Source information
Rfam assigns this 57-nucleotide sequence from Takifugu flavidus to the family "Vault RNA". Rfam 15.1 lists 2,873 matches to the family in 431 species. It scores 48 bits against the family's covariance model. For this family Rfam cites "Evolution of Vault RNAs" (Stadler et al., Mol Biol Evol, 2009).
[Rfam]
RNA sequence: GCGCCGGUUUAGCUCAGUGGCUGCUAGGUUCGACCACGGGCGCUGUCUGGCGUUUUG
Numbered sequence: 001g002c003g004c005c006g007g008u009u010u011a012g013c014u015c016a017g018u019g020g021c022u023g024c025u026a027g028g029u030u031c032g033a034c035c036a037c038g039g040g041c042g043c044u045g046u047c048u049g050g051c052g053u054u055u056u057g
Stems, first nucleotide, its partner, number of pairs: 002052006012041004017037004